[Rfam]
RNA sequence: CCGUGCUAGGCGGGGUGCUAGCGGUGCCCUGUACCCGCAAUCCGCUCUAGCGGGGCUGAAUCCCCUCCCGAGGGGCACAGGCCCCGGGUCAGCGCCCCGGCUCGAGGCGUUGAUGGUUCGGUCCCGUUGCGAUGGGAGCCCGUGAACCAGGUCAGAUCCGGAAGGAAGCAGCCUUAAGCGGUAACCCCCAGGCGCGACGGGAGCGCCGGAUCUGAGCCUCGAGGCAGUGGCAGCGUCCCGGGUACCGGCCACGACGGAGGGUGCACGG
Numbered sequence: 001c002c003g004u005g006c007u008a009g010g011c012g013g014g015g016u017g018c019u020a021g022c023g024g025u026g027c028c029c030u031g032u033a034c035c036c037g038c039a040a041u042c043c044g045c046u047c048u049a050g051c052g053g054g055g056c057u058g059a060a061u062c063c064c065c066u067c068c069c070g071a072g073g074g075g076c077a078c079a080g081g082c083c084c085c086g087g088g089u090c091a092g093c094g095c096c097c098c099g100g101c102u103c104g105a106g107g108c109g110u111u112g113a114u115g116g117u118u119c120g121g122u123c124c125c126g127u128u129g130c131g132a133u134g135g136g137a138g139c140c141c142g143u144g145a146a147c148c149a150g151g152u153c154a155g156a157u158c159c160g161g162a163a164g165g166a167a168g169c170a171g172c173c174u175u176a177a178g179c180g181g182u183a184a185c186c187c188c189c190a191g192g193c194g195c196g197a198c199g200g201g202a203g204c205g206c207c208g209g210a211u212c213u214g215a216g217c218c219u220c221g222a223g224g225c226a227g228u229g230g231c232a233g234c235g236u237c238c239c240g241g242g243u244a245c246c247g248g249c250c251a252c253g254a255c256g257g258a259g260g261g262u263g264c265a266c267g268g
Stems, first nucleotide, its partner, number of pairs: 001268006009057003012030008034054005063261006072252001074250003078247001080245001083242005092231001096229001098227001100225002106218003115212008123201006130192001133190004140181004149174004157166003
Dot-bracket structure: ((((((..(((((((((((...))))))))...(((((...........)))))))).....((((((...(.(((.(.(..(((((....(...(.(.((....(((......((((((((((((((.(..((((...((((.....((((....(((....)))....))))...)))).....)))).)...))))))...))))))))...))).....)).).).)......)))))..).)))).)...)))))).))))))